[Rfam]
RNA sequence: AUCUGGAGAGAGGCGCCGUGCGCGCCCACCGAAGGGGAUGCCGCGCGCAUGCGCGGUUGAAGCUCUCAGGUACCGAGACAGAU
Numbered sequence: 001a002u003c004u005g006g007a008g009a010g011a012g013g014c015g016c017c018g019u020g021c022g023c024g025c026c027c028a029c030c031g032a033a034g035g036g037g038a039u040g041c042c043g044c045g046c047g048c049a050u051g052c053g054c055g056g057u058u059g060a061a062g063c064u065c066u067c068a069g070g071u072a073c074c075g076a077g078a079c080a081g082a083u
Stems, first nucleotide, its partner, number of pairs: 001083005012026004028071003031067002035065003
The record is an 83-nucleotide sequence from Bordetella ansorpii, which matches "Glycine riboswitch aptamer" in Rfam. The organism belongs to Bordetella, within Bacteria. A search with the family's covariance model found it, with a score of 42 bits. The literature on the family includes a 2004 paper in Science by Mandal et al., "A glycine-dependent riboswitch that uses cooperative binding to control gene expression".